Bradyrhizobiaceae sRNA BjrC174: a 206-nucleotide RNA from Bradyrhizobiaceae bacterium SG-6C. NCBI's taxonomy places the organism under Bacteria, Pseudomonadota, Alphaproteobacteria, Hyphomicrobiales, Nitrobacteraceae. The family's RNA type in Rfam is small RNA. The literature on the family includes a 2012 paper in RNA Biol by Madhugiri et al., "Small RNAs of the Bradyrhizobium/Rhodopseudomonas lineage and their analysis". The pairing is the family consensus, mapped onto this sequence.
[Rfam]
Nucleotides: 206
Stems, first nucleotide, its partner, number of pairs: 036050002039047002082165005089152011102139004107134004119127002183202008
Number, partner (000 for none) and nucleotide at each position: 001000a002000u003000c004000a005000c006000g007000c008000g009000g010000a011000c012000g013000u014000u015000a016000g017000a018000c019000a020000a021000a022000c023000c024000a025000u026000a027000a028000u029000g030000c031000c032000g033000c034000c035000c036050g037049a038000u039047u040046u041000c042000g043000g044000u045000c046040a047039a048000u049037u050036c051000c052000c053000c054000g055000c056000c057000c058000u059000u060000g061000u062000g063000g064000a065000c066000u067000g068000c069000g070000a071000u072000c073000a074000a075000g076000u077000c078000u079000c080000u081000a082165c083164u084163g085162c086161g087000u088000u089152g090151a091150c092149c093148c094147g095146g096145u097144c098143c099142u100000u101000u102139c103138g104137g105136c106000a107134c108133c109132g110131g111000a112000u113000u114000c115000c116000u117000c118000a119127g120126c121000c122000c123000c124000c125000a126120g127119c128000c129000c130000c131110c132109c133108g134107g135000g136105g137104u138103c139102g140000u141000c142099a143098g144097g145096a146095u147094c148093g149092g150091g151090u152089c153000u154000a155000g156000u157000u158000c159000u160000u161086c162085g163084c164083a165082g166000c167000a168000g169000a170000a171000u172000c173000c174000c175000c176000a177000u178000c179000c180000u181000u182000c183202g184201g185200g186199c187198c188197a189196g190195c191000g192000a193000g194000a195190g196189c197188u198187g199186g200185c201184c202183u203000u204000u205000u206000u